[Rfam]
RNA sequence: GGUGGAUGGUGUGCACAGUGUUGGUCCUGUGUUAUGUGUGUUGCAAGGCUGUGUUUUACAGUCUCUGCAGCAGUGCUCACUCCACACCCGCAGCCACAGAACAACAGGAGAUCACUAGUACUGGCCAAUGACGUCUUUCUGGCUUUUCACAAUUUGCCAGCCUCCAAACUCUCCUACAAGC
Numbered sequence: 001g002g003u004g005g006a007u008g009g010u011g012u013g014c015a016c017a018g019u020g021u022u023g024g025u026c027c028u029g030u031g032u033u034a035u036g037u038g039u040g041u042u043g044c045a046a047g048g049c050u051g052u053g054u055u056u057u058a059c060a061g062u063c064u065c066u067g068c069a070g071c072a073g074u075g076c077u078c079a080c081u082c083c084a085c086a087c088c089c090g091c092a093g094c095c096a097c098a099g100a101a102c103a104a105c106a107g108g109a110g111a112u113c114a115c116u117a118g119u120a121c122u123g124g125c126c127a128a129u130g131a132c133g134u135c136u137u138u139c140u141g142g143c144u145u146u147u148c149a150c151a152a153u154u155u156g157c158c159a160g161c162c163u164c165c166a167a168a169c170u171c172u173c174c175u176a177c178a179a180g181c
Base pairs, nucleotide, nucleotide: 013091014090030084031082036077039072040071041070043068044067046064047063050060051059052058107174108173109172110171111170121160122159123158124157125156127154128153129152130146131145133143134142135141
A member of the RNA family "Small nucleolar RNA SNORA23" from Myripristis murdjan, 181 nucleotides long. About the family: The members of this family belong to the H/ACA class of snoRNAs which are thought to guide the sites of modification of uridines to pseudouridines. Its family is annotated with RNA processing and nucleolus in the Gene Ontology. A search with the family's covariance model found it, with a score of 68 bits. Lineage of the source: Eukaryota > Craniata > Teleostomi > Osteoglossocephalai > Myripristis. A reference for the family is Huttenhofer et al. (2001), "RNomics: an experimental approach that identifies 201 candidates for novel, small, non-messenger RNAs in mouse", EMBO J. The family's consensus secondary structure was predicted with RNAalifold.